[Rfam]
RNA sequence: GAGUAAUGGGUUCUAGUGGUGCCCUGCUAGAACCCUUACAGCCUGGAUCUCAACCAGAUGCUGUUAAACGGGCAUUUC
Numbered sequence: 001g002a003g004u005a006a007u008g009g010g011u012u013c014u015a016g017u018g019g020u021g022c023c024c025u026g027c028u029a030g031a032a033c034c035c036u037u038a039c040a041g042c043c044u045g046g047a048u049c050u051c052a053a054c055c056a057g058a059u060g061c062u063g064u065u066a067a068a069c070g071g072g073c074a075u076u077u078c
Stems, first nucleotide, its partner, number of pairs: 008035009020074005043057002046055001048053001